[Rfam]
RNA sequence: AACUCUUGGCUCUCUUCUAGACGCAGAAAUAUUUUGCCUUUUAGCAAAAAUUUCCGUGGGGAAGGUCAGUCAAUGAAGGUAAACCCAAUUUUUGGAAUGCCUGGCGCAAGCUAGUAC
Numbered sequence: 001a002a003c004u005c006u007u008g009g010c011u012c013u014c015u016u017c018u019a020g021a022c023g024c025a026g027a028a029a030u031a032u033u034u035u036g037c038c039u040u041u042u043a044g045c046a047a048a049a050a051u052u053u054c055c056g057u058g059g060g061g062a063a064g065g066u067c068a069g070u071c072a073a074u075g076a077a078g079g080u081a082a083a084c085c086c087a088a089u090u091u092u093u094g095g096a097a098u099g100c101c102u103g104g105c106g107c108a109a110g111c112u113a114g115u116a117c
Stems, first nucleotide, its partner, number of pairs: 003078002006075001009067001011065003015061005027053004032048003098116003103111001
RNA: U5 spliceosomal RNA